The record is a 72-nucleotide sequence, which matches "Flavo-1 RNA" in Rfam.
The family's consensus secondary structure is taken from published work.
RNA sequence: GUCUAGCCCCGAUAGCAGCGGCAUCCUUUUGGACUAUAGGCCAAAAAGAUAAAGCGAAUAGCGGGACAAAAU
Number, nucleotide and partner (000 for none) at each position: 001g000002u000003c000004u000005a000006g000007c000008c000009c064010c063011g062012a000013u060014a059015g000016c000017a000018g055019c054020g000021g000022c000023a050024u049025c048026c000027u000028u045029u044030u043031g042032g041033a000034c000035u000036a000037u000038a000039g000040g000041c032042c031043a030044a029045a028046a000047a000048g025049a024050u023051a000052a000053a000054g019055c018056g000057a000058a000059u014060a013061g000062c011063g010064g009065g000066a000067c000068a000069a000070a000071a000072u000

It is annotated as a small RNA.